[Rfam]
RNA sequence: AUGUAAGAUAAGAUAUUUAUGACCAUUUCACGAAAAACAGUCGUAACCCGAUUGUAUCAUCGUGUCUGUUUAUAUGCAAGCAAAAAGAACCUGAUCCCCUCAUCAGGUUCUUUUUUGA
Numbered sequence: 001a002u003g004u005a006a007g008a009u010a011a012g013a014u015a016u017u018u019a020u021g022a023c024c025a026u027u028u029c030a031c032g033a034a035a036a037a038c039a040g041u042c043g044u045a046a047c048c049c050g051a052u053u054g055u056a057u058c059a060u061c062g063u064g065u066c067u068g069u070u071u072a073u074a075u076g077c078a079a080g081c082a083a084a085a086a087g088a089a090c091c092u093g094a095u096c097c098c099c100u101c102a103u104c105a106g107g108u109u110c111u112u113u114u115u116u117g118a
Stems, first nucleotide, its partner, number of pairs: 033073001035071004039065001042062002083114012
Dot-bracket structure: ................................(.(((((..((.................))..)..)))).).........((((((((((((........))))))))))))....

Shown here is a 118-nucleotide sequence from Cohnella zeiphila, a member of the family "Bacillus sRNA ncr1015". It is annotated as a small RNA. A search with the family's covariance model found it, with a score of 101 bits. On this family, see Irnov et al., Nucleic Acids Res 2010: "Identification of regulatory RNAs in Bacillus subtilis". NCBI's taxonomy places the organism under Bacteria, Bacillati, Bacilli, Paenibacillaceae, Cohnella.